A member of the RNA family "mir-275 microRNA precursor family" from Oryctes borbonicus, 94 nucleotides long.
RNA sequence: CGACGGUUUGUGGUGCGUGCUACUUCGGUGCUUGGCUUUGUUCAUUCCGGUCGGUAAGUCAGGUACCUGAAGUAGCGCGCGCUACGGGCCGGUA
Numbered sequence: 001c002g003a004c005g006g007u008u009u010g011u012g013g014u015g016c017g018u019g020c021u022a023c024u025u026c027g028g029u030g031c032u033u034g035g036c037u038u039u040g041u042u043c044a045u046u047c048c049g050g051u052c053g054g055u056a057a058g059u060c061a062g063g064u065a066c067c068u069g070a071a072g073u074a075g076c077g078c079g080c081g082c083u084a085c086g087g088g089c090c091g092g093u094a
Stems, first nucleotide, its partner, number of pairs: 009086004014081001016079007030064003034060004
Dot-bracket structure: ........((((.(.(((((((.......(((.((((...................)))).)))........))))))).).))))........

Its family is annotated with miRNA-mediated post-transcriptional gene silencing and RISC complex in the Gene Ontology. Pairs were carried over by alignment from the consensus structure, which was predicted with RNAalifold.